[Rfam]
RNA sequence: UCCUCGUUCAAAGGAUCGCAGUCGAAGCACACAAACGGAGCAGACACAUUUAUUGUUGUCUCUCAGCCUGUCAUGGGCUAGUCAAUGCUUUGGGAGAAAGUCCCCGGACGACCUUCUUCUACAACUCGUUGUGGAAAAAAGGAACGCGGAAACGCGCCGCCAUAGAAGCAUACUGCGGCUUCUUAUUUUCUCCUCUCCUUACCUUUCUUCAGAUCGACCUUUGCCGUCGCUUGUACUCGCUUUCGGCGCUUUUGAUUGCUGCUGCUGGGGGAGGGGGAGACCUUAUGGAUGAAGAUAUGAGUCCGAGCUCUCCUGAUCUCAGUUGUGGUAGAGCAUUUGCAAUGAUUGCGGGGAGGCGGGAAAGUGUCUUCGGUCUGGGUUGGGGUUUAUGGGAGGGGGGAGGCUUUCGUCGAGAGUGAUAGUUAUGCGAUUGCUCUUCUUUCCAGCUUCACGGUUGGUCAAGGAGGGUAACUCGAUGGGGCUUAUUCUUGAGACGAGG
Numbered sequence: 001u002c003c004u005c006g007u008u009c010a011a012a013g014g015a016u017c018g019c020a021g022u023c024g025a026a027g028c029a030c031a032c033a034a035a036c037g038g039a040g041c042a043g044a045c046a047c048a049u050u051u052a053u054u055g056u057u058g059u060c061u062c063u064c065a066g067c068c069u070g071u072c073a074u075g076g077g078c079u080a081g082u083c084a085a086u087g088c089u090u091u092g093g094g095a096g097a098a099a100g101u102c103c104c105c106g107g108a109c110g111a112c113c114u115u116c117u118u119c120u121a122c123a124a125c126u127c128g129u130u131g132u133g134g135a136a137a138a139a140a141g142g143a144a145c146g147c148g149g150a151a152a153c154g155c156g157c158c159g160c161c162a163u164a165g166a167a168g169c170a171u172a173c174u175g176c177g178g179c180u181u182c183u184u185a186u187u188u189u190c191u192c193c194u195c196u197c198c199u200u201a202c203c204u205u206u207c208u209u210c211a212g213a214u215c216g217a218c219c220u221u222u223g224c225c226g227u228c229g230c231u232u233g234u235a236c237u238c239g240c241u242u243u244c245g246g247c248g249c250u251u252u253u254g255a256u257u258g259c260u261g262c263u264g265c266u267g268g269g270g271g272a273g274g275g276g277g278a279g280a281c282c283u284u285a286u287g288g289a290u291g292a293a294g295a296u297a298u299g300a301g302u303c304c305g306a307g308c309u310c311u312c313c314u315g316a317u318c319u320c321a322g323u324u325g326u327g328g329u330a331g332a333g334c335a336u337u338u339g340c341a342a343u344g345a346u347u348g349c350g351g352g353g354a355g356g357c358g359g360g361a362a363a364g365u366g367u368c369u370u371c372g373g374u375c376u377g378g379g380u381u382g383g384g385g386u387u388u389a390u391g392g393g394a395g396g397g398g399g400g401a402g403g404c405u406u407u408c409g410u411c412g413a414g415a416g417u418g419a420u421a422g423u424u425a426u427g428c429g430a431u432u433g434c435u436c437u438u439c440u441u442u443c444c445a446g447c448u449u450c451a452c453g454g455u456u457g458g459u460c461a462a463g464g465a466g467g468g469u470a471a472c473u474c475g476a477u478g479g480g481g482c483u484u485a486u487u488c489u490u491g492a493g494a495c496g497a498g499g
Stems, first nucleotide, its partner, number of pairs: 002499006008492004014432006022094001023092006038069001040067002043064002098484003102481004145156004301404003309400006318393004434468008
RNase MRP: a 499-nucleotide sequence from Pseudogymnoascus sp. VKM F-4519. The organism belongs to Pseudogymnoascus, within Eukaryota. For this family Rfam cites "Secondary structure of RNase MRP RNA as predicted by phylogenetic comparison" (Schmitt et al., FASEB J, 1993). RNase MRP is an enzymatically active ribonucleoprotein with two distinct roles in eukaryotes. In mitochondria it plays a direct role in the initiation of mitochondrial DNA replication. In the nucleus it is involved in precursor rRNA processing, where it cleaves the internal transcribed spacer 1 between 18S and 5.8S rRNAs. Despite distinct functions, RNase MRP has been shown to be evolutionarily related to RNase P. Like eukaryotic RNase P, RNase MRP is not catalytically active without associated protein subunits. The match comes from Rfam's covariance-model search (100 bits). It is annotated as a ribozyme.